[Rfam]
This 33-nucleotide RNA sequence belongs to the Rfam family "S4-Bacteroidia ribosomal protein leader". Clan: Ribosomal Protein S4 Leader clan. Pairs were carried over by alignment from the consensus structure, which is taken from published work. The family's RNA type in Rfam is cis-regulatory leader. On this family, see Eckert and Weinberg, BMC Microbiol 2020: "Discovery of 20 novel ribosomal leader candidates in bacteria and archaea".

RNA sequence: GGUUGCAUUUAAACCUCUCUGCAAUCGCGGCUG
Numbered sequence: 001g002g003u004u005g006c007a008u009u010u011a012a013a014c015c016u017c018u019c020u021g022c023a024a025u026c027g028c029g030g031c032u033g
Stems, first nucleotide, its partner, number of pairs: 001026007
Dot-bracket structure: (((((((............))))))).......